[Rfam]
RNA sequence: GGAAUAUAAGAACAUGUGUCUUCAUUUUUAACUAAAAAAACUAAGAACCAGUUCUUAAAUAUCUUAUUUAAGAACUGGUUCUUAGCUUUUGUAGUUAAAAGUUAAGAUACAUGUUUUUAUACUUC
Number, nucleotide and partner (000 for none) at each position: 001g125002g124003a123004a000005u121006a120007u119008a118009a117010g116011a115012a114013c113014a112015u111016g110017u109018g108019u107020c106021u105022u104023c000024a102025u101026u100027u099028u098029u097030a096031a095032c094033u093034a092035a000036a090037a089038a088039a087040a000041c085042u084043a083044a082045g081046a080047a079048c000049c000050a000051g000052u000053u000054c000055u000056u000057a000058a000059a000060u000061a000062u000063c000064u000065u000066a000067u000068u000069u000070a000071a000072g000073a000074a000075c000076u000077g000078g000079u047080u046081c045082u044083u043084a042085g041086c000087u039088u038089u037090u036091g000092u034093a033094g032095u031096u030097a029098a028099a027100a026101g025102u024103u000104a022105a021106g020107a019108u018109a017110c016111a015112u014113g013114u012115u011116u010117u009118u008119a007120u006121a005122c000123u003124u002125c001